RNA sequence: GCUGUCGUUUGCUCAGUAGGCAGUGUAGAUCCUGUUAAAAGAUCAGCAGCUACAUCUGGCUACUGGGUCUCCGACGGCUAGU
Numbered sequence: 001g002c003u004g005u006c007g008u009u010u011g012c013u014c015a016g017u018a019g020g021c022a023g024u025g026u027a028g029a030u031c032c033u034g035u036u037a038a039a040a041g042a043u044c045a046g047c048a049g050c051u052a053c054a055u056c057u058g059g060c061u062a063c064u065g066g067g068u069c070u071c072c073g074a075c076g077g078c079u080a081g082u
Stems, first nucleotide, its partner, number of pairs: 013066006021058002023055006032049004

A member of the RNA family "mir-221 microRNA precursor family" from Cynoglossus semilaevis, 82 nucleotides long. On this family, see Yao et al., J Virol 2008: "MicroRNA profile of Marek's disease virus-transformed T-cell line MSB-1: predominance of virus-encoded microRNAs". The match comes from Rfam's covariance-model search (75 bits).